[Rfam]
Overview:
Shown here is an 83-nucleotide sequence from Hymenochirus boettgeri, a member of the family "Small nucleolar RNA SNORD121A". The family's consensus secondary structure was predicted with WAR. Its family is annotated with nucleolus and RNA processing in the Gene Ontology. Rfam classes the family as a C/D-box small nucleolar RNA. The literature on the family includes a 2006 paper in Nucleic Acids Res by Yang et al., "snoSeeker: an advanced computational package for screening of guide and orphan snoRNA genes in the human genome". Lineage of the source: Eukaryota > Craniata > Batrachia > Pipidae > Hymenochirus. The match comes from Rfam's covariance-model search (78 bits).
RNA sequence: UCCCAGAAUACAAUGAUGCCUUGUUUUCCAAGCACAUGUCUGAAUACACUUUGUGGAACAAAACCAUUCUGAGUGUUCUGGGG
Numbered sequence: 001u002c003c004c005a006g007a008a009u010a011c012a013a014u015g016a017u018g019c020c021u022u023g024u025u026u027u028c029c030a031a032g033c034a035c036a037u038g039u040c041u042g043a044a045u046a047c048a049c050u051u052u053g054u055g056g057a058a059c060a061a062a063a064c065c066a067u068u069c070u071g072a073g074u075g076u077u078c079u080g081g082g083g
Stems, first nucleotide, its partner, number of pairs: 001083006008076004